[Rfam]
RNA sequence: UAACUUGUGUUAAUUACUAGCACCUUCUAGGAGAAAUCCUAGUCGAAAACUCUGUUAAACGGGGAAAGGCUCCAUUGGAGGUAAUCCCGUGCUAAAUCUUAUCGUAAUAAGAAUAAUGACUUGGACAUUGUCUUAUGGUUAUGUGUAUGUAUCGAUGAACUUAACUAUAAGAGACUUUCUGAACGAUUACGAUAAGUAAAUGCCGAACGACUACCGAAAGCAUAGCUGGAUGAAAAACUCCAGUGAAGAAGCGAGUAGGGUACACUCAAGCGAGUGGAAAAGCAGAGCACCUUAUCAGGUUAAGCUGAAGGUGAUGAUAUAGUCUAUCCUUACAUGGUGACAUGUAG
Dot-bracket structure: ......((((((.....)))))).....(((......))).........[[[[.[[..((((((.....((((...))))....))))))((.....((...(((((...............................................................................)))))...)).....))...(.(((((...................................................................]].]]]]..((((..............))))........))))))......(((((....)))))..
Numbered sequence: 001u002a003a004c005u006u007g008u009g010u011u012a013a014u015u016a017c018u019a020g021c022a023c024c025u026u027c028u029a030g031g032a033g034a035a036a037u038c039c040u041a042g043u044c045g046a047a048a049a050c051u052c053u054g055u056u057a058a059a060c061g062g063g064g065a066a067a068g069g070c071u072c073c074a075u076u077g078g079a080g081g082u083a084a085u086c087c088c089g090u091g092c093u094a095a096a097u098c099u100u101a102u103c104g105u106a107a108u109a110a111g112a113a114u115a116a117u118g119a120c121u122u123g124g125a126c127a128u129u130g131u132c133u134u135a136u137g138g139u140u141a142u143g144u145g146u147a148u149g150u151a152u153c154g155a156u157g158a159a160c161u162u163a164a165c166u167a168u169a170a171g172a173g174a175c176u177u178u179c180u181g182a183a184c185g186a187u188u189a190c191g192a193u194a195a196g197u198a199a200a201u202g203c204c205g206a207a208c209g210a211c212u213a214c215c216g217a218a219a220g221c222a223u224a225g226c227u228g229g230a231u232g233a234a235a236a237a238c239u240c241c242a243g244u245g246a247a248g249a250a251g252c253g254a255g256u257a258g259g260g261u262a263c264a265c266u267c268a269a270g271c272g273a274g275u276g277g278a279a280a281a282g283c284a285g286a287g288c289a290c291c292u293u294a295u296c297a298g299g300u301u302a303a304g305c306u307g308a309a310g311g312u313g314a315u316g317a318u319a320u321a322g323u324c325u326a327u328c329c330u331u332a333c334a335u336g337g338u339g340a341c342a343u344g345u346a347g
Stems, first nucleotide, its partner, number of pairs: 007023006029040003050287004055282002059090006070080004091203002098196002103191005207325001209324005290311004332345005